[Rfam]
About this RNA:
The record is a 57-nucleotide RNA from Meconopsis racemosa, which matches "Plastid-psbA-4 3UTR RNA" in Rfam. The organism belongs to Meconopsis, within Eukaryota. The family's consensus secondary structure was predicted with LocARNA. It is annotated as a cis-regulatory element. Rfam's curators put it in the seed alignment. Rfam's curators write: Plastid psbA-4 is a non-coding RNA (ncRNA) present in plastids.

Nucleotides: 057
Stems, first nucleotide, its partner, number of pairs: 002055012017040002020037005
Number, partner (000 for none) and nucleotide at each position: 001000u002055g003054a004053a005052g006051g007050a008049g009048c010047a011046a012045u013044a014000c015000c016000g017040a018039c019000c020037c021036u022035c023034u024033u025000a026000u027000u028000c029000u030000a031000u032000c033024a034023a035022g036021a037020g038000g039018g040017u041000c042000g043000g044013u045012a046011u047010u048009g049008c050007u051006c052005c053004u054003u055002c056000a057000u